RNA sequence: GUGUUUUUCAUAGUAUUAGAUUUAAGGUUAAUAAUUGAGGAGUAGGUUGUCGUGAUGACAACCUCUUCUUUUUUG
Numbered sequence: 001g002u003g004u005u006u007u008u009c010a011u012a013g014u015a016u017u018a019g020a021u022u023u024a025a026g027g028u029u030a031a032u033a034a035u036u037g038a039g040g041a042g043u044a045g046g047u048u049g050u051c052g053u054g055a056u057g058a059c060a061a062c063c064u065c066u067u068c069u070u071u072u073u074u075g
Stems, first nucleotide, its partner, number of pairs: 045063007
This 75-nucleotide RNA from Dysgonomonas sp. HDW5A belongs to the Rfam family "Bacteroidetes FopS (family of paralogous sRNAs)". A reference for the family is Ruttiger et al. (2025), "The global RNA-binding protein RbpB is a regulator of polysaccharide utilization in Bacteroides thetaiotaomicron", Nat Commun. About the family: The RNA-binding protein RbpB and BTncRNA_FopS sRNA are involved in the post-transcription regulation of polysaccharide utilisation loci (PUL). Rfam classes the family as a small RNA. Gene Ontology term of the family: sRNA-mediated gene silencing. The source organism's lineage runs through Bacteria, Pseudomonadati, Bacteroidia, Dysgonomonadaceae and Dysgonomonas.